[Rfam]
RNA sequence: CUUGCCUUGCCUGGGGCAUAGCAGAAGCAUUUACAUUGCAGUCCCUGUCAGAUUCUUAUGAAUCUGCAAAUUCUGCU
Numbered sequence: 001c002u003u004g005c006c007u008u009g010c011c012u013g014g015g016g017c018a019u020a021g022c023a024g025a026a027g028c029a030u031u032u033a034c035a036u037u038g039c040a041g042u043c044c045c046u047g048u049c050a051g052a053u054u055c056u057u058a059u060g061a062a063u064c065u066g067c068a069a070a071u072u073c074u075g076c077u
Stems, first nucleotide, its partner, number of pairs: 013045005020077007027039003049066007